[Rfam]
RNA sequence: AAUGAGUGAUGACAAGAUGUUUCGGUCCCAGAUGACAUGGAAUGAUUCCAUUUUCCCAUUUCUGACAUU
Numbered sequence: 001a002a003u004g005a006g007u008g009a010u011g012a013c014a015a016g017a018u019g020u021u022u023c024g025g026u027c028c029c030a031g032a033u034g035a036c037a038u039g040g041a042a043u044g045a046u047u048c049c050a051u052u053u054u055c056c057c058a059u060u061u062c063u064g065a066c067a068u069u
Base pairs, nucleotide, nucleotide: 001069002068003067004066
A member of the RNA family "Small nucleolar RNA SNORD73" from Bucco capensis, 69 nucleotides long.
The source organism's lineage runs through Eukaryota, Sauria, Coelurosauria, Neoaves and Bucco.
Pairs were carried over by alignment from the consensus structure, which was predicted with PFOLD.
It is annotated as a C/D-box small nucleolar RNA.
Gene Ontology terms of the family: RNA processing and nucleolus.